Selenocysteine transfer RNA: an 86-nucleotide RNA sequence from Lottia gigantea. The source organism's lineage runs through Eukaryota, Metazoa, Eumetazoa, Mollusca and Lottia. Its Rfam clan is "tRNA clan". The family's consensus secondary structure is taken from published work. Gene Ontology term of the family: triplet codon-amino acid adaptor activity.

Nucleotides: 086
Base pairs, nucleotide, nucleotide: 001086002085003084004083005082007080009078012027013026014025015024016023017022028046030044031043032042033041048061049060050059051058052057063077064076065075066074
Number, partner (000 for none) and nucleotide at each position: 001086g002085c003084c004083c005082a006000a007080c008000u009078g010000a011000g012027c013026c014025u015024c016023a017022g018000g019000g020000g021000u022017c023016u024015g025014g026013g027012g028046u029000u030044c031043a032042g033041g034000c035000u036000u037000c038000a039000a040000a041033c042032c043031u044030g045000u046028a047000a048061c049060u050059g051058a052057u053000u054000a055000a056000c057052g058051u059050c060049a061048g062000a063077g064076u065075g066074g067000u068000u069000c070000g071000a072000c073000u074066c075065c076064a077063c078009c079000u080007g081000g082005u083004g084003g085002g086001c